[Rfam]
RNA: Small nucleolar RNA Z107/R87
RNA sequence: GAGAAAUCGUGGUGAUGACUUGGAAAUAUUCAAGCUCAACAGACCGUAAUGUAGGAUUUUUCCUAGUGGAAAGUCUUGCGUGUGUCGAUAAUCCCGCUGAACUGAGCGAUUUCUC
Numbered sequence: 001g002a003g004a005a006a007u008c009g010u011g012g013u014g015a016u017g018a019c020u021u022g023g024a025a026a027u028a029u030u031c032a033a034g035c036u037c038a039a040c041a042g043a044c045c046g047u048a049a050u051g052u053a054g055g056a057u058u059u060u061u062c063c064u065a066g067u068g069g070a071a072a073g074u075c076u077u078g079c080g081u082g083u084g085u086c087g088a089u090a091a092u093c094c095c096g097c098u099g100a101a102c103u104g105a106g107c108g109a110u111u112u113c114u115c
Base pairs, nucleotide, nucleotide: 005111006110007109008108009107010106